The family of this 195-nucleotide RNA sequence from Psychrobacillus glaciei is "Group II catalytic intron D1-D4-5". Rfam's curators write: Group II introns are found in rRNA, tRNA and mRNA of organelles in fungi, plants and protists, and also in mRNA in bacteria. A search with the family's covariance model found it, with a score of 111 bits.
RNA sequence: CUGAAGGGUUAUAUCGAAGAGUCAAAUGAUAAAGUAACGUUUUGAAGGGCUCUAUCUUAGUCGAAUAGCAUUAGAUUUAGUAAGAAUGAUCGUGUUAUAAGCUCGGCGAAAAGGCGUGAGAAUUUACCGUAGCAGUUCGGCUGACGAAAGCCUACCCGCGGGGGUGGUGUAAAUCAUGAUGCUUGAGUUGAAUGA
Numbered sequence: 001c002u003g004a005a006g007g008g009u010u011a012u013a014u015c016g017a018a019g020a021g022u023c024a025a026a027u028g029a030u031a032a033a034g035u036a037a038c039g040u041u042u043u044g045a046a047g048g049g050c051u052c053u054a055u056c057u058u059a060g061u062c063g064a065a066u067a068g069c070a071u072u073a074g075a076u077u078u079a080g081u082a083a084g085a086a087u088g089a090u091c092g093u094g095u096u097a098u099a100a101g102c103u104c105g106g107c108g109a110a111a112a113g114g115c116g117u118g119a120g121a122a123u124u125u126a127c128c129g130u131a132g133c134a135g136u137u138c139g140g141c142u143g144a145c146g147a148a149a150g151c152c153u154a155c156c157c158g159c160g161g162g163g164g165u166g167g168u169g170u171a172a173a174u175c176a177u178g179a180u181g182c183u184u185g186a187g188u189u190g191a192a193u194g195a
Base pairs, nucleotide, nucleotide: 018053019052020051021050022049023048031043032042033041034040055186056185061106062105063104064103065098066097067096068095069094070093071092074091075090076089077088113183114182115181116180117179122174123173124172125171126170127169128146129145130144134142135141150168151167152166154165155164156163157162